[Rfam]
RNA sequence: GCCUCUGAUGAUGAUGAAAAGAAACUUUCGUUCUGUUGAGAAAUUCCACGGUGAAAAUUUAUGGAGACCUGAACUGAAGAGGC
Numbered sequence: 001g002c003c004u005c006u007g008a009u010g011a012u013g014a015u016g017a018a019a020a021g022a023a024a025c026u027u028u029c030g031u032u033c034u035g036u037u038g039a040g041a042a043a044u045u046c047c048a049c050g051g052u053g054a055a056a057a058u059u060u061a062u063g064g065a066g067a068c069c070u071g072a073a074c075u076g077a078a079g080a081g082g083c
Base pairs, nucleotide, nucleotide: 003081004080005079006078
RNA: Small nucleolar RNA Z159/U59
Organism: Camellia sinensis